[Rfam]
A member of the RNA family "mir-548 microRNA precursor family" from Pan troglodytes, 84 nucleotides long. The literature on the family includes a 2010 paper in BMC Biol by Witten et al., "Ultra-high throughput sequencing-based small RNA discovery and discrete statistical biomarker analysis in a collection of cervical tumours and matched controls". The family has 11 seed sequences and 3,009 matches in Rfam 15.1.

RNA sequence: UAUUAGGUUGGCGCAGAAGUGAUUGUGGUUUUUGCCAUUGAAAGUAAUGGCAAAAACCACAAUUACUUCUCUGCCAACCUAAUA
Numbered sequence: 001u002a003u004u005a006g007g008u009u010g011g012c013g014c015a016g017a018a019g020u021g022a023u024u025g026u027g028g029u030u031u032u033u034g035c036c037a038u039u040g041a042a043a044g045u046a047a048u049g050g051c052a053a054a055a056a057c058c059a060c061a062a063u064u065a066c067u068u069c070u071c072u073g074c075c076a077a078c079c080u081a082a083u084a
Base pairs, nucleotide, nucleotide: 001084002083003082004081005080006079007078008077009076010075011074012073013072015070016069017068018067019066020065021064022063023062024061025060026059027058028057029056030055031054032053033052034051035050036049037048038047039046040045